[Rfam]
Nucleotides: 143
Stems, first nucleotide, its partner, number of pairs: 001056005007050002014043005020036004069135005081122007090113001094108004
Number, partner (000 for none) and nucleotide at each position: 001056u002055g003054a004053c005052g006000c007050c008049u009000g010000u011000u012000c013000c014043u015042c016041u017040c018039g019000c020036u021035g022034c023033u024000c025000u026000g027000a028000g029000c030000u031000g032000u033023g034022g035021c036020a037000g038000c039018u040017g041016g042015g043014a044000u045000u046000u047000u048000a049008g050007g051000u052005c053004g054003u055002c056001a057000c058000a059000g060000a061000g062000u063000a064000a065000a066000c067000a068000g069135g070134g071133u072132c073131u074000a075000u076000u077000u078000c079000a080000c081122c082121c083120a084119g085118u086117g087116u088000u089000u090113a091000u092000g093000a094108g095107g096106u097105a098000g099000c100000a101000g102000g103000g104000c105097u106096g107095c108094c109000a110000u111000u112000a113090u114000c115000u116087a117086c118085a119084c120083u121082g122081g123000a124000c125000u126000u127000u128000g129000c130000g131073g132072g133071a134070c135069c136000c137000c138000a139000c140000a141000c142000a143000u
This 143-nucleotide sequence from Hucho hucho belongs to the Rfam family "Small nucleolar RNA SNORA79". On this family, see Schattner et al., RNA 2006: "A computational screen for mammalian pseudouridylation guide H/ACA RNAs". Lineage of the source: Eukaryota > Opisthokonta > Vertebrata > Euteleostomi > Hucho. About the family: ACA65 (SNORA79) is a member of the H/ACA class of snoRNAs that guide the sites of modification of uridines to pseudouridines. This snoRNA was identified by computational screening and its expression in mouse experimentally verified by Northern blot and primer extension analysis.